[Rfam]
RNA sequence: AUAAUUGAAUAGAAAAAAGUUCGUAUAACCUCAAAAAUUGGUUUGGGGGCUCUACUAGGGACCGAAAAAACCCUAACUACGAACGCAAUAUUUUCUUCG
Numbered sequence: 001a002u003a004a005u006u007g008a009a010u011a012g013a014a015a016a017a018a019g020u021u022c023g024u025a026u027a028a029c030c031u032c033a034a035a036a037a038u039u040g041g042u043u044u045g046g047g048g049g050c051u052c053u054a055c056u057a058g059g060g061a062c063c064g065a066a067a068a069a070a071c072c073c074u075a076a077c078u079a080c081g082a083a084c085g086c087a088a089u090a091u092u093u094u095c096u097u098c099g
Stems, first nucleotide, its partner, number of pairs: 019084007029048007056075005
RNA: Purine riboswitch aptamer
Organism: Paenibacillus sp. GP183